A member of the RNA family "mir-172 microRNA precursor family" from Salix dunnii, 144 nucleotides long. Pairs were carried over by alignment from the consensus structure, which was predicted with PFOLD. A search with the family's covariance model found it, with a score of 92 bits. Rfam's curators write: mir-172 has been experimentally verified in Arabidopsis thaliana. This family is thought to target mRNAs coding for APETALA2-like transcription factors. The mature sequence is excised from the 3' arm of the hairpin. Lineage of the source: Eukaryota > Viridiplantae > Embryophyta > Euphyllophyta > Salix.
[Rfam]
RNA sequence: CUGUUUGCCGAUGGAGCAUCAUCAAGAUUCACAAACUUUAUUAGGGCUAAUGAGUGGUGAUGAUGGAGGCUUUUGGUGGUCCCUUCGUUUCAACCCAAUAGCCCUUUGAAUUGGGAAUCUUGAUGAUGCUGCAGCGGCAAUAAA
Numbered sequence: 001c002u003g004u005u006u007g008c009c010g011a012u013g014g015a016g017c018a019u020c021a022u023c024a025a026g027a028u029u030c031a032c033a034a035a036c037u038u039u040a041u042u043a044g045g046g047c048u049a050a051u052g053a054g055u056g057g058u059g060a061u062g063a064u065g066g067a068g069g070c071u072u073u074u075g076g077u078g079g080u081c082c083c084u085u086c087g088u089u090u091c092a093a094c095c096c097a098a099u100a101g102c103c104c105u106u107u108g109a110a111u112u113g114g115g116a117a118u119c120u121u122g123a124u125g126a127u128g129c130u131g132c133a134g135c136g137g138c139a140a141u142a143a144a
Base pairs, nucleotide, nucleotide: 010135012133013132015130016129017128018127019126020125021124022123023122024121025120026119027118028117029116030115032113033112